[Rfam]
RNA sequence: GGGAAUGGCUGUACCCCUGGUGGGUGCCCCGGACUUCAAAUCCGGCGGCGGGCCAGCCUUGAGCUGUCCGCGGUAGGUUCGAUUCCUACACAUUCCC
Number, nucleotide and partner (000 for none) at each position: 001g097002g096003g095004a094005a093006u092007g091008g089009c000010u000011g027012u026013a025014c024015c023016c000017c022018u000019g000020g000021u000022g017023g015024g014025u013026g012027c011028c000029c045030c044031g043032g042033a041034c000035u000036u000037c000038a000039a000040a000041u033042c032043c031044g030045g029046c000047g000048g071049c070050g069051g068052g067053c000054c000055a000056g000057c000058c000059u000060u000061g000062a000063g000064c000065u000066g000067u052068c051069c050070g049071c048072g000073g000074u088075a087076g086077g085078u000079u000080c000081g000082a000083u000084u000085c077086c076087u075088a074089c008090a000091c007092a006093u005094u004095c003096c002097c001
Shown here is a 97-nucleotide RNA sequence from Selenihalanaerobacter shriftii, a member of the family "Selenocysteine transfer RNA".
The family's consensus secondary structure is taken from published work.
For this family Rfam cites "Eukaryotic selenocysteine tRNA has the 9/4 secondary structure" (Mizutani and Goto, FEBS Lett, 2000).
It scores 68 bits against the family's covariance model.